A member of the RNA family "Gag/pol translational readthrough site" from Peromyscus maniculatus, 62 nucleotides long. It is annotated as a cis-regulatory element. A reference for the family is Wills et al. (1994), "Pseudoknot-dependent read-through of retroviral gag termination codons: importance of sequences in the spacer and loop 2", EMBO J. It scores 73 bits against the family's covariance model. NCBI's taxonomy places the organism under Eukaryota, Teleostomi, Euteleostomi, Rodentia, Peromyscus maniculatus.
RNA sequence: UAGGGGAGACGGGGUUUGGACCCCCUCCCCGAGCCCAGGGUAACACUCAGAGUGGAGGGGAA
Number, nucleotide and partner (000 for none) at each position: 001u000002a000003g000004g000005g000006g000007a000008g041009a000010c039011g000012g036013g035014g034015u033016u031017u000018g029019g028020a000021c000022c060023c059024c058025c057026u056027c055028c019029c018030c000031g016032a000033g015034c014035c013036c012037a000038g000039g010040g000041u008042a000043a000044c000045a000046c000047u000048c000049a000050g000051a000052g000053u000054g000055g027056a026057g025058g024059g023060g022061a000062a000